[Rfam]
RNA sequence: CAACGGUUUAAGGCACCUAUCCAGUUACGCUGCCAGGAGGCCCGGUAGCAGGCUGGCGGCUUGGUCUGGAAACGGGUCGGGUCGGAGCCCAGCGUCGAAGGCCCUGUUGGGGGAGCAAAUCAGCGGUCCGUAGCGGAG
Numbered sequence: 001c002a003a004c005g006g007u008u009u010a011a012g013g014c015a016c017c018u019a020u021c022c023a024g025u026u027a028c029g030c031u032g033c034c035a036g037g038a039g040g041c042c043c044g045g046u047a048g049c050a051g052g053c054u055g056g057c058g059g060c061u062u063g064g065u066c067u068g069g070a071a072a073c074g075g076g077u078c079g080g081g082u083c084g085g086a087g088c089c090c091a092g093c094g095u096c097g098a099a100g101g102c103c104c105u106g107u108u109g110g111g112g113g114a115g116c117a118a119a120u121c122a123g124c125g126g127u128c129c130g131u132a133g134c135g136g137a138g
Base pairs, nucleotide, nucleotide: 021045022044024042052093053092054091055090056089057084058083059082060081061080062079066075068073102112103111104110115131116130
Dot-bracket structure: ....................((.(.................).))......(((((((((((...(.(....).)...))))))....)))))........(((.....)))..((.............)).......

A member of the RNA family "Group II catalytic intron D1-D4-4" from Micromonospora craniellae, 138 nucleotides long. A search with the family's covariance model found it, with a score of 60 bits. About the family: Group II introns are found in rRNA, tRNA and mRNA of organelles in fungi, plants and protists, and also in mRNA in bacteria. Pairs were carried over by alignment from the consensus structure.